The record is a 73-nucleotide sequence from Clostridium baratii, which matches "tRNA" in Rfam. Rfam classes the family as a transfer RNA. A search with the family's covariance model found it, with a score of 74 bits. The family's consensus secondary structure is taken from published work. Taxonomically the source falls in Clostridium baratii (Bacteria, Bacillati, Clostridiaceae, Clostridium).
Nucleotides: 073
Base pairs, nucleotide, nucleotide: 001072002071003070004069005068006067007066010025011024012023013022027043028042029041030040031039049065050064051063052062053061
Number, partner (000 for none) and nucleotide at each position: 001072g002071c003070u004069g005068a006067u007066g008000u009000g010025g011024c012023u013022c014000a015000a016000u017000u018000g019000g020000c021000a022013g023012a024011g025010c026000a027043g028042c029041u030040g031039a032000c033000u034000u035000g036000u037000a038000a039031u040030c041029a042028g043027c044000a045000g046000g047000u048000u049065a050064u051063c052062g053061g054000u055000u056000c057000a058000a059000g060000u061053c062052c063051g064050a065049u066007c067006a068005u069004c070003a071002g072001c073000u